Description: The record is a 180-nucleotide RNA from Neobacillus bataviensis, which matches "Lysine riboswitch aptamer" in Rfam. Rfam's curators write: Riboswitches are metabolite binding domains within certain messenger RNAs that serve as precision sensors for their corresponding targets. The base pairs follow the family's consensus structure, which is taken from published work.
[Rfam]
RNA sequence: AGUGAGGAUAGAGGCGCAAAGACCAUUAGUAGACAAUUUGAGGAUAAUGAGAUCCUUAGACGAUUGUUUAAAGGGGAAUUUGCCGAAGCUUCAGAGAUACUCAUGGUCUUGAAGCUGGUUCUGCUGUUGAAUAAGCACAGAACUGUCAUAUAGGAAACUAUAUGGAGGGCUAUCCACGCA
Numbered sequence: 001a002g003u004g005a006g007g008a009u010a011g012a013g014g015c016g017c018a019a020a021g022a023c024c025a026u027u028a029g030u031a032g033a034c035a036a037u038u039u040g041a042g043g044a045u046a047a048u049g050a051g052a053u054c055c056u057u058a059g060a061c062g063a064u065u066g067u068u069u070a071a072a073g074g075g076g077a078a079u080u081u082g083c084c085g086a087a088g089c090u091u092c093a094g095a096g097a098u099a100c101u102c103a104u105g106g107u108c109u110u111g112a113a114g115c116u117g118g119u120u121c122u123g124c125u126g127u128u129g130a131a132u133a134a135g136c137a138c139a140g141a142a143c144u145g146u147c148a149u150a151u152a153g154g155a156a157a158c159u160a161u162a163u164g165g166a167g168g169g170c171u172a173u174c175c176a177c178g179c180a
Stems, first nucleotide, its partner, number of pairs: 006175006016083005023076002032068007087116008096107001098105001117144007125137004146165007